[Rfam]
RNA sequence: AUACUUACCUUAAGAUGCCAGAGGAGAUCAAGAAGUCCUACUGGCCGGACAUGCACCUUCACGAAGAGGAAUGCUAUGCAUUUAGAUCCAAAUGGAUCAUAUCAUUGAUGUAAGCUUCCUCGGCAAUUGCACAUACAUGCGAAGGGUGUGUCUGCUGACGUCUCGUUUCCUCGUUUCGGGGUUUUCUGGUUUUCUGGGAGACUCUGGGGCCCUUUUUUACUUCUGCCAGGAGAAGGAUGGCACUGAGUACAAUCAGUGCUGAGGGAGCUGGGGUUCAUCAGGUGAGUCUCAAUGAAUUGUUGCCUUUGAAAGGGUUUACCGCGCUCUUCUUAAUCACUGCAGCUGUUGAUUUUCUUAGGCUCCUUUCUUUGAAAGAGGCUUUUGAAAAGGGUUUAGCGGCUGUCAGUGGUUAAGAUGUGGUGGAUUCUUCUGGAGGCGCGUUCAAUUUUUCUUUGAAAGGUUGGACAAAACGCUUUGUUGAGAUGUCCUCUUUAGGGAGGAGAAGCCUGAUGGAUCUUGGUAGAGACGGGUGGGUCUUAUAAUUUUUGAUUUAUCCC
Numbered sequence: 001a002u003a004c005u006u007a008c009c010u011u012a013a014g015a016u017g018c019c020a021g022a023g024g025a026g027a028u029c030a031a032g033a034a035g036u037c038c039u040a041c042u043g044g045c046c047g048g049a050c051a052u053g054c055a056c057c058u059u060c061a062c063g064a065a066g067a068g069g070a071a072u073g074c075u076a077u078g079c080a081u082u083u084a085g086a087u088c089c090a091a092a093u094g095g096a097u098c099a100u101a102u103c104a105u106u107g108a109u110g111u112a113a114g115c116u117u118c119c120u121c122g123g124c125a126a127u128u129g130c131a132c133a134u135a136c137a138u139g140c141g142a143a144g145g146g147u148g149u150g151u152c153u154g155c156u157g158a159c160g161u162c163u164c165g166u167u168u169c170c171u172c173g174u175u176u177c178g179g180g181g182u183u184u185u186c187u188g189g190u191u192u193u194c195u196g197g198g199a200g201a202c203u204c205u206g207g208g209g210c211c212c213u214u215u216u217u218u219a220c221u222u223c224u225g226c227c228a229g230g231a232g233a234a235g236g237a238u239g240g241c242a243c244u245g246a247g248u249a250c251a252a253u254c255a256g257u258g259c260u261g262a263g264g265g266a267g268c269u270g271g272g273g274u275u276c277a278u279c280a281g282g283u284g285a286g287u288c289u290c291a292a293u294g295a296a297u298u299g300u301u302g303c304c305u306u307u308g309a310a311a312g313g314g315u316u317u318a319c320c321g322c323g324c325u326c327u328u329c330u331u332a333a334u335c336a337c338u339g340c341a342g343c344u345g346u347u348g349a350u351u352u353u354c355u356u357a358g359g360c361u362c363c364u365u366u367c368u369u370u371g372a373a374a375g376a377g378g379c380u381u382u383u384g385a386a387a388a389g390g391g392u393u394u395a396g397c398g399g400c401u402g403u404c405a406g407u408g409g410u411u412a413a414g415a416u417g418u419g420g421u422g423g424a425u426u427c428u429u430c431u432g433g434a435g436g437c438g439c440g441u442u443c444a445a446u447u448u449u450u451c452u453u454u455g456a457a458a459g460g461u462u463g464g465a466c467a468a469a470a471c472g473c474u475u476u477g478u479u480g481a482g483a484u485g486u487c488c489u490c491u492u493u494a495g496g497g498a499g500g501a502g503a504a505g506c507c508u509g510a511u512g513g514a515u516c517u518u519g520g521u522a523g524a525g526a527c528g529g530g531u532g533g534g535u536c537u538u539a540u541a542a543u544u545u546u547u548g549a550u551u552u553a554u555c556c557c
Stems, first nucleotide, its partner, number of pairs: 010542003013537003017045005022039004046154009056145005072137002159528006167266006173210017220235005240259007